Shown here is an 81-nucleotide sequence from Anabaena sp. 90, a member of the family "Photosynthesis regulatory RNA1".
It scores 53 bits against the family's covariance model.

RNA sequence: GUUAAUUGCGCUGAGUAUUUGUAUCUAAUCGUCAUUCAAAUUUUCUCCUAAUUAACCCUGGUCAGUUUCGCCAGGGUUUUU
Numbered sequence: 001g002u003u004a005a006u007u008g009c010g011c012u013g014a015g016u017a018u019u020u021g022u023a024u025c026u027a028a029u030c031g032u033c034a035u036u037c038a039a040a041u042u043u044u045c046u047c048c049u050a051a052u053u054a055a056c057c058c059u060g061g062u063c064a065g066u067u068u069c070g071c072c073a074g075g076g077u078u079u080u081u
Base pairs, nucleotide, nucleotide: 055077056076057075058074059073060072061071062070
NCBI's taxonomy places the organism under Bacteria, Bacillati, Nostocales, Nostocaceae, Anabaena.
Formerly known as Syr1 discovered in Synechocystis sp PCC 6803, is a regulatory factor controlling photosynthetic functions.
The family's consensus secondary structure was predicted with CMfinder.